[Rfam]
RNA: Saccharopolyspora sRNA 350
RNA sequence: UUGUAGGUGUGGUUCCAGGUGGUCGUUUCGCGGCCGAGGAUGUGCGCGCCGAAGUACUCGCCGUCGGCGAGCACGCCGAGGACGGUGUCGUCGCCGUACUCGCCGGUGCCGAUCUUGUUGAUCUUGCCGUGUGCGAUGAGCACGACCUGGUCCGCCGGUUGCCCGGCGGUGGCGAUGACCUGGCCCGGCUCGAGCCCACCCUGCCCGAAGCGGUCGGCCAGGGCGGCCAGCACCGUAUCGUCGUCGAAUCCGCGCAGCAGCGGCAGUUCCCGCAGUUCUUGCGGGAUGACCCGGAUGUCGGCGCCGGUGUUGGUGAAGGUGACCCGUCCGUCGCCGAGGGUGUAGCUCAGCCGCCGGUUGACCCGGUACGCGCCGCCCGAGGCCUGCACCCACGGCAACAUCCGCAGCAGCCACCGCGAUGUGAUGCCCUGCAUCUGCGGGACGGAUUUCGUCGUCGUGGCCAGGUUCCGCGCCGCCGCCGUACUCAGGCUCAACGGCGACGCUUCGG
Numbered sequence: 001u002u003g004u005a006g007g008u009g010u011g012g013u014u015c016c017a018g019g020u021g022g023u024c025g026u027u028u029c030g031c032g033g034c035c036g037a038g039g040a041u042g043u044g045c046g047c048g049c050c051g052a053a054g055u056a057c058u059c060g061c062c063g064u065c066g067g068c069g070a071g072c073a074c075g076c077c078g079a080g081g082a083c084g085g086u087g088u089c090g091u092c093g094c095c096g097u098a099c100u101c102g103c104c105g106g107u108g109c110c111g112a113u114c115u116u117g118u119u120g121a122u123c124u125u126g127c128c129g130u131g132u133g134c135g136a137u138g139a140g141c142a143c144g145a146c147c148u149g150g151u152c153c154g155c156c157g158g159u160u161g162c163c164c165g166g167c168g169g170u171g172g173c174g175a176u177g178a179c180c181u182g183g184c185c186c187g188g189c190u191c192g193a194g195c196c197c198a199c200c201c202u203g204c205c206c207g208a209a210g211c212g213g214u215c216g217g218c219c220a221g222g223g224c225g226g227c228c229a230g231c232a233c234c235g236u237a238u239c240g241u242c243g244u245c246g247a248a249u250c251c252g253c254g255c256a257g258c259a260g261c262g263g264c265a266g267u268u269c270c271c272g273c274a275g276u277u278c279u280u281g282c283g284g285g286a287u288g289a290c291c292c293g294g295a296u297g298u299c300g301g302c303g304c305c306g307g308u309g310u311u312g313g314u315g316a317a318g319g320u321g322a323c324c325c326g327u328c329c330g331u332c333g334c335c336g337a338g339g340g341u342g343u344a345g346c347u348c349a350g351c352c353g354c355c356g357g358u359u360g361a362c363c364c365g366g367u368a369c370g371c372g373c374c375g376c377c378c379g380a381g382g383c384c385u386g387c388a389c390c391c392a393c394g395g396c397a398a399c400a401u402c403c404g405c406a407g408c409a410g411c412c413a414c415c416g417c418g419a420u421g422u423g424a425u426g427c428c429c430u431g432c433a434u435c436u437g438c439g440g441g442a443c444g445g446a447u448u449u450c451g452u453c454g455u456c457g458u459g460g461c462c463a464g465g466u467u468c469c470g471c472g473c474c475g476c477c478g479c480c481g482u483a484c485u486c487a488g489g490c491u492c493a494a495c496g497g498c499g500a501c502g503c504u505u506c507g508g
Base pairs, nucleotide, nucleotide: 006390007389008388009387010386011385012384014382015381018328019327021325022324023322024321025320026319027318028316029315035313037311038310040308041307046304047303048302049301050300051299052298054233055232057230058229060227061226062225063224064223065111066110067109068108075103077102078101079100080099082097083096084095085094086093118221119220120219122217123216127212130209131206133204134203135202138199140197144195150191154189155188156187157186158185160183162177166173167172236294240290241289242288243287244286245285249283251281252280254278256277257276258275260271262269329342330341331340332339351379353377355375356374357373362370391431392430394428395427396426397425399423400422401421403418404417405416407415437476438475439474440473443470444469445468446467447465448464449463451461452460477507478506480502481501482500484499486497488495